[Rfam]
Source information: Rfam assigns this 88-nucleotide RNA sequence to the family "skipping-rope RNA". It is annotated as a small RNA. It is one of the family's seed sequences.

RNA sequence: AAGGAUAGAGGUUGAAAAUCUGUCACCAACGCGCUACUUAGUUAGUGGAUCGAGAAAUGCAGGAGCCUCGACAGUCCUGCCUAUCCUU
Numbered sequence: 001a002a003g004g005a006u007a008g009a010g011g012u013u014g015a016a017a018a019u020c021u022g023u024c025a026c027c028a029a030c031g032c033g034c035u036a037c038u039u040a041g042u043u044a045g046u047g048g049a050u051c052g053a054g055a056a057a058u059g060c061a062g063g064a065g066c067c068u069c070g071a072c073a074g075u076c077c078u079g080c081c082u083a084u085c086c087u088u
Base pairs, nucleotide, nucleotide: 001088002087003086004085005084006083007082008081011030012029013028014027020074021073022072023071024070032054033046034045035044036043059080060079061078062077063076